Shown here is a 75-nucleotide sequence from Castor canadensis, a member of the family "Small nucleolar RNA SNORD112". It is annotated as a C/D-box small nucleolar RNA. Gene Ontology terms of the family: nucleolus and RNA processing. The family is grouped with related families in Rfam's "SNORD74 clan". Taxonomically the source falls in Castor (Eukaryota, Chordata, Teleostomi, Euteleostomi). For this family Rfam cites "Identification of tandemly-repeated C/D snoRNA genes at the imprinted human 14q32 domain reminiscent of those at the Prader-Willi/Angelman syndrome region" (Cavaille et al., Hum Mol Genet, 2002).

[Rfam]
RNA sequence: UGGACCAGUGAUGACGACGUGUUUAUGAACAAAGGAUCGUGAUUCAUCUAGUUCUGCAAAAUACGGAGGUCCAUU
Numbered sequence: 001u002g003g004a005c006c007a008g009u010g011a012u013g014a015c016g017a018c019g020u021g022u023u024u025a026u027g028a029a030c031a032a033a034g035g036a037u038c039g040u041g042a043u044u045c046a047u048c049u050a051g052u053u054c055u056g057c058a059a060a061a062u063a064c065g066g067a068g069g070u071c072c073a074u075u
Stems, first nucleotide, its partner, number of pairs: 001073006
Dot-bracket structure: ((((((.............................................................))))))..